Y RNA: a 112-nucleotide sequence from Chlorocebus sabaeus.
RNA sequence: AGCUGGUCUGAAGGUAGUAGUGAAUUAUCUCAACUGAUUGUUCACAGUCAGUUACAGAUCAAACUCUUCUACCCUUUCCCCUCUUCUCACUACUGCGCUUGACCACUCUUAA
Numbered sequence: 001a002g003c004u005g006g007u008c009u010g011a012a013g014g015u016a017g018u019a020g021u022g023a024a025u026u027a028u029c030u031c032a033a034c035u036g037a038u039u040g041u042u043c044a045c046a047g048u049c050a051g052u053u054a055c056a057g058a059u060c061a062a063a064c065u066c067u068u069c070u071a072c073c074c075u076u077u078c079c080c081c082u083c084u085u086c087u088c089a090c091u092a093c094u095g096c097g098c099u100u101g102a103c104c105a106c107u108c109u110u111a112a
Stems, first nucleotide, its partner, number of pairs: 002107001004105005010100002014096002016091003020087001022086001047073001050070002
Rfam 15.1 lists 26,986 matches to the family in 650 species. NCBI's taxonomy places the organism under Eukaryota, Deuterostomia, Tetrapoda, Boreoeutheria, Chlorocebus. About the family: Y RNAs are components of the Ro ribonucleoprotein particle (Ro RNP), in association with Ro60 and La proteins. The Y RNAs and Ro60 and La proteins are well conserved, but the function of the Ro RNP is not known. In humans the RNA component can be one of four small RNAs -- hY1, hY3, hY4 and hY5. The match comes from Rfam's covariance-model search (41 bits). For this family Rfam cites "Ro ribonucleoproteins contribute to the resistance of Deinococcus radiodurans to ultraviolet irradiation" (Chen et al., Genes Dev, 2000). It is annotated as a non-coding RNA gene.